[Rfam]
RNA sequence: ACGACGGGCCGCGACUGGCGUGCUGGGAUGGGCUCAACCAUCGGGGAGCGGCCGCCGCUCCACCGCCGUGCGCCUGGGCCUUUCGU
Numbered sequence: 001a002c003g004a005c006g007g008g009c010c011g012c013g014a015c016u017g018g019c020g021u022g023c024u025g026g027g028a029u030g031g032g033c034u035c036a037a038c039c040a041u042c043g044g045g046g047a048g049c050g051g052c053c054g055c056c057g058c059u060c061c062a063c064c065g066c067c068g069u070g071c072g073c074c075u076g077g078g079c080c081u082u083u084c085g086u
Stems, first nucleotide, its partner, number of pairs: 007053006015045002017074005028041004065079003
RNA: ZMP/ZTP riboswitch aptamer (pfl RNA motif)
Organism: Actinorhabdospora filicis